[Rfam]
RNA: Bacillaceae-1 RNA
RNA sequence: CUUUGGGGAAGUUCGGUUAAAAAUGCGAUGUCCUUGUCGCAACACCGAACUGACCUAUAUCCUGC
Dot-bracket structure: ..........(((((((.......(((((......)))))...))))))).......(.....).